[Rfam]
RNA sequence: ACCCCAAGAUAUUAAGCCGGCAAGCGAUUGUAAUUUAACCAGCAACGUUUGUGACUAUGACUGGGAACAUAAACCGCUGCUGAUGUGUGUAUGUUGGGAGCCUCUCUAUGGCAUUCAACAAAGUUAUUUUCAGACGACA
Numbered sequence: 001a002c003c004c005c006a007a008g009a010u011a012u013u014a015a016g017c018c019g020g021c022a023a024g025c026g027a028u029u030g031u032a033a034u035u036u037a038a039c040c041a042g043c044a045a046c047g048u049u050u051g052u053g054a055c056u057a058u059g060a061c062u063g064g065g066a067a068c069a070u071a072a073a074c075c076g077c078u079g080c081u082g083a084u085g086u087g088u089g090u091a092u093g094u095u096g097g098g099a100g101c102c103u104c105u106c107u108a109u110g111g112c113a114u115u116c117a118a119c120a121a122a123g124u125u126a127u128u129u130u131c132a133g134a135c136g137a138c139a
Base pairs, nucleotide, nucleotide: 020052021051022050023049024048025047026046080133081132082131083130092120093119094118095117096116097115098114100112101111102110
The record is a 139-nucleotide RNA from Drosophila busckii, which matches "Small nucleolar RNA snoR639/H1" in Rfam.
On this family, see Giordano et al., J Cell Biol 1999: "minifly, a Drosophila gene required for ribosome biogenesis".
Rfam's curators write: snoR639 or snoH1 belongs to the H/ACA class of snoRNAs which are thought to guide the sites of modification of uridines to pseudouridines. snoH1 is found in an intron of the mfl gene in Drosophila.
The family's RNA type in Rfam is H/ACA-box small nucleolar RNA.
Lineage of the source: Eukaryota > Opisthokonta > Diptera > Drosophilini > Dorsilopha.